[Rfam]
Description:
Repression of heat shock gene expression (ROSE) element: an 86-nucleotide RNA sequence from Aquamicrobium lusatiense. The match comes from Rfam's covariance-model search (56 bits). Rfam describes the family as follows. This family represents a 5' UTR cis-regulatory element found in heat shock mRNAs and is known as the ROSE (repression of heat shock gene expression) element. The ROSE element is a negative regulator of heat shock gene expression. The secondary structure is thought to be regulated by temperature. This regulation blocks access to the ribosome binding site under normal conditions. By type it is an RNA thermoregulator. Rfam links the family to the GO terms response to temperature stimulus and regulation of translation. The organism belongs to Aquamicrobium, within Bacteria.
RNA sequence: GCCGCUGCCACUACGGGGCGGCGCCGGUUAAAAAAGCCGGACAAUCUUGUACCCAUGUUGCUUCAAGGAGGAUGUGGCUAUGAGAA
Numbered sequence: 001g002c003c004g005c006u007g008c009c010a011c012u013a014c015g016g017g018g019c020g021g022c023g024c025c026g027g028u029u030a031a032a033a034a035a036g037c038c039g040g041a042c043a044a045u046c047u048u049g050u051a052c053c054c055a056u057g058u059u060g061c062u063u064c065a066a067g068g069a070g071g072a073u074g075u076g077g078c079u080a081u082g083a084g085a086a
Base pairs, nucleotide, nucleotide: 001022002021003020004019005018006017008016009015046084047083048082049081050080051079053077054076055075056074057073058072059071061070062069063068